[Rfam]
RNA sequence: GAUGAAUGUCGCCGUAUAGCUGGGGUUUCAAAGCGGCAUGUGCCUUCUGCUAUGCAAUGCCCUUGGAAAUCCCAAACGUGCUGGCGACGAUC
Number, nucleotide and partner (000 for none) at each position: 001g000002a000003u000004g000005a000006a000007u000008g088009u087010c086011g085012c084013c083014g081015u080016a079017u000018a000019g000020c000021u074022g073023g072024g071025g070026u069027u068028u067029c066030a000031a064032a063033g062034c000035g061036g060037c059038a058039u057040g000041u056042g055043c054044c000045u000046u000047c000048u000049g000050c000051u000052a000053u000054g043055c042056a041057a039058u038059g037060c036061c035062c033063u032064u031065g000066g029067a028068a027069a026070u025071c024072c023073c022074a021075a000076a000077c000078g000079u016080g015081c014082u000083g013084g012085c011086g010087a009088c008089g000090a000091u000092c000
This 92-nucleotide sequence from Chrysodeixis includens belongs to the Rfam family "mir-2788 microRNA precursor family". The base pairs follow the family's consensus structure, which was predicted with RNAalifold. The match comes from Rfam's covariance-model search (103 bits). Rfam links the family to the GO terms RISC complex and miRNA-mediated post-transcriptional gene silencing.